A member of the RNA family "Glycine riboswitch aptamer" from Aliigemmobacter aestuarii, 102 nucleotides long. The pairing is the family consensus, mapped onto this sequence. Rfam describes the family as follows. This family represents the bacterial glycine riboswitch.
RNA sequence: GGCAUCAGGAUCGGGAGAAUCCGGCGCAGCCGCAAGGGGGGCCGGUGCCGAAGGAGCAACCGCCCCGGUAAACUCUCAGGCGCAAGGGACCGUCCUGACGAA
Numbered sequence: 001g002g003c004a005u006c007a008g009g010a011u012c013g014g015g016a017g018a019a020u021c022c023g024g025c026g027c028a029g030c031c032g033c034a035a036g037g038g039g040g041g042c043c044g045g046u047g048c049c050g051a052a053g054g055a056g057c058a059a060c061c062g063c064c065c066c067g068g069u070a071a072a073c074u075c076u077c078a079g080g081c082g083c084a085a086g087g088g089a090c091c092g093u094c095c096u097g098a099c100g101a102a
Base pairs, nucleotide, nucleotide: 006097007096008095009094010093012092013091014090021045022044023043024042047081048080049079050077051076054075055074056073060068061067